[Rfam]
The family of this 77-nucleotide RNA is "eL15-Euryarchaeota ribosomal protein leader". The family's RNA type in Rfam is cis-regulatory leader. A reference for the family is Eckert and Weinberg (2020), "Discovery of 20 novel ribosomal leader candidates in bacteria and archaea", BMC Microbiol. The base pairs follow the family's consensus structure, which is taken from published work.
RNA sequence: CCUGUCUGUGCAGGUCGGGAUGUGACCAGCGGGGUCGAAGACCCCAAAACGGCGUCGCCGCCGGGUUGAACCACGCA
Numbered sequence: 001c002c003u004g005u006c007u008g009u010g011c012a013g014g015u016c017g018g019g020a021u022g023u024g025a026c027c028a029g030c031g032g033g034g035u036c037g038a039a040g041a042c043c044c045c046a047a048a049a050c051g052g053c054g055u056c057g058c059c060g061c062c063g064g065g066u067u068g069a070a071c072c073a074c075g076c077a
Base pairs, nucleotide, nucleotide: 001014002013003012004011005010017072018071024067025066026065027064